[Rfam]
RNA: Group II catalytic intron D1-D4-1
RNA sequence: CAAACGCGUCAGUGAUGGCGGGUUGAAUUGUAAGAAGUCAGCAGACGCCGUAGUAGUUCCAUUAGGAACGAAGGGC
Numbered sequence: 001c002a003a004a005c006g007c008g009u010c011a012g013u014g015a016u017g018g019c020g021g022g023u024u025g026a027a028u029u030g031u032a033a034g035a036a037g038u039c040a041g042c043a044g045a046c047g048c049c050g051u052a053g054u055a056g057u058u059c060c061a062u063u064a065g066g067a068a069c070g071a072a073g074g075g076c
Stems, first nucleotide, its partner, number of pairs: 001025002004023002007020005037046003047076003056069005